The family of this 50-nucleotide sequence is "L31-Gammaproteobacteria ribosomal protein leader".
Its Rfam clan is "Ribosomal Protein L31 Leader clan".
For this family Rfam cites "Discovery of 20 novel ribosomal leader candidates in bacteria and archaea" (Eckert and Weinberg, BMC Microbiol, 2020).
The family's consensus secondary structure is taken from published work.
Rfam's curators put it in the seed alignment.

[Rfam]
RNA sequence: CGUGUGGUAUCAGGUGAAAAAUCCUGAUGGCGACGCGGCCCAAGAGAGGU
Numbered sequence: 001c002g003u004g005u006g007g008u009a010u011c012a013g014g015u016g017a018a019a020a021a022u023c024c025u026g027a028u029g030g031c032g033a034c035g036c037g038g039c040c041c042a043a044g045a046g047a048g049g050u
Base pairs, nucleotide, nucleotide: 001037002036003035004034005033007031008030011026012025013024014023015021